The family of this 91-nucleotide RNA sequence from Medicago truncatula is "MIR5298 microRNA precursor family". A search with the family's covariance model found it, with a score of 78 bits.

RNA sequence: UUAGGUUUUCUUCAUUUUCUUCUGAAAUUUUUCUGGAAUUAUUGUUGUUGAAGAUUGAUAGAGAUAAUAUGAAAAUGAAAAAGAGGAGAAG
Numbered sequence: 001u002u003a004g005g006u007u008u009u010c011u012u013c014a015u016u017u018u019c020u021u022c023u024g025a026a027a028u029u030u031u032u033c034u035g036g037a038a039u040u041a042u043u044g045u046u047g048u049u050g051a052a053g054a055u056u057g058a059u060a061g062a063g064a065u066a067a068u069a070u071g072a073a074a075a076u077g078a079a080a081a082a083g084a085g086g087a088g089a090a091g
Stems, first nucleotide, its partner, number of pairs: 006084004011079009037056004042051002
Dot-bracket structure: .....((((.(((((((((.................((((.((......)).))))..............))))))))).)))).......